[Rfam]
RNA sequence: UUGUUAGAUAACGAAGUGAUUCGUAUUUUCAUGUAUGUGGAAAGUCCCCGAGCCGUUUCUCAGAAAUGAGUUAUUGGAAACAAUAAAAGCAUUUCCAUUGCAUUGUGUUUGAAAUCCUGAAGUUGAGACGAGUUUGGAACUUGUGAUGGAUUGAUGCAGAUUGCUUUAUGGUGCUUACUUUGGCUAAUAGACAGUUAUUCACUUGGCUAUCGUUGAUGACUUCCAAAACGGGGCUUAUGAUUAUCUAACA
Number, nucleotide and partner (000 for none) at each position: 001u000002u250003g249004u248005u247006a246007g245008a244009u243010a242011a241012c000013g000014a204015a203016g202017u201018g200019a199020u000021u000022c037023g036024u035025a034026u000027u000028u000029u000030c000031a000032u000033g000034u025035a024036u023037g022038u000039g000040g000041a000042a236043a235044g234045u000046c233047c232048c231049c230050g000051a000052g000053c000054c000055g000056u000057u000058u000059c070060u069061c068062a067063g000064a000065a000066a000067u062068g061069a060070g059071u086072u085073a084074u083075u082076g081077g000078a000079a000080a000081c076082a075083a074084u073085a072086a071087a000088a175089g174090c173091a000092u000093u000094u000095c171096c170097a169098u168099u000100g000101c000102a000103u000104u000105g164106u163107g162108u000109u000110u000111g000112a000113a000114a000115u150116c149117c148118u000119g000120a000121a000122g000123u000124u000125g000126a000127g000128a000129c000130g000131a000132g000133u000134u000135u000136g000137g000138a000139a000140c000141u000142u000143g000144u000145g000146a000147u000148g117149g116150a115151u000152u000153g000154a000155u000156g000157c000158a000159g000160a000161u000162u107163g106164c105165u000166u000167u000168a098169u097170g096171g095172u000173g090174c089175u088176u000177a000178c000179u000180u000181u000182g000183g000184c000185u000186a000187a000188u000189a000190g000191a000192c000193a000194g000195u000196u000197a000198u000199u019200c018201a017202c016203u015204u014205g000206g220207c000208u218209a217210u216211c215212g000213u000214u000215g211216a210217u209218g208219a000220c206221u000222u000223c000224c000225a000226a000227a000228a000229c000230g049231g048232g047233g046234c044235u043236u042237a000238u000239g000240a000241u011242u010243a009244u008245c007246u006247a005248a004249c003250a002